[Rfam]
RNA sequence: AGCACUUUUCGAAGUGCUGGCUGAUGUAAGUCCGACGUGUCGUCCGACACUGCCUGUCAAGGCUUGGGAUUAC
Numbered sequence: 001a002g003c004a005c006u007u008u009u010c011g012a013a014g015u016g017c018u019g020g021c022u023g024a025u026g027u028a029a030g031u032c033c034g035a036c037g038u039g040u041c042g043u044c045c046g047a048c049a050c051u052g053c054c055u056g057u058c059a060a061g062g063c064u065u066g067g068g069a070u071u072a073c
Stems, first nucleotide, its partner, number of pairs: 001018006026073004032068002037050005052063004
Rfam assigns this 73-nucleotide RNA to the family "S15-Methanomicrobia ribosomal protein leader". For this family Rfam cites "Discovery of 20 novel ribosomal leader candidates in bacteria and archaea" (Eckert and Weinberg, BMC Microbiol, 2020). Clan: Ribosomal Protein S15 Leader clan.